Rfam assigns this 123-nucleotide RNA sequence from Menidia menidia to the family "Small nucleolar RNA SNORA65". The family's RNA type in Rfam is H/ACA-box small nucleolar RNA. A search with the family's covariance model found it, with a score of 87 bits. The family's consensus secondary structure was predicted with RNAalifold. The family is grouped with related families in Rfam's "SNORA65 clan". Gene Ontology terms of the family: nucleolus and RNA processing. The organism belongs to Menidia, within Eukaryota.
RNA sequence: CCCGCCACUGCGCCCGACUUGUGGCGGUUUGCGGUCCAGUGGGGGCUCAGAGCAACCCGGCUUUAGGAAACAGGGCUGCCCGGUUACGGUGGGCCGCCCUGUGCCGUAAAGCCCGGCACAGAC
Numbered sequence: 001c002c003c004g005c006c007a008c009u010g011c012g013c014c015c016g017a018c019u020u021g022u023g024g025c026g027g028u029u030u031g032c033g034g035u036c037c038a039g040u041g042g043g044g045g046c047u048c049a050g051a052g053c054a055a056c057c058c059g060g061c062u063u064u065a066g067g068a069a070a071c072a073g074g075g076c077u078g079c080c081c082g083g084u085u086a087c088g089g090u091g092g093g094c095c096g097c098c099c100u101g102u103g104c105c106g107u108a109a110a111g112c113c114c115g116g117c118a119c120a121g122a123c
Base pairs, nucleotide, nucleotide: 005042006041007040008039009038010037017030019024057116058115059114060113061111062110063109064108066105067104071101072100073099074098075097076096079093080092081091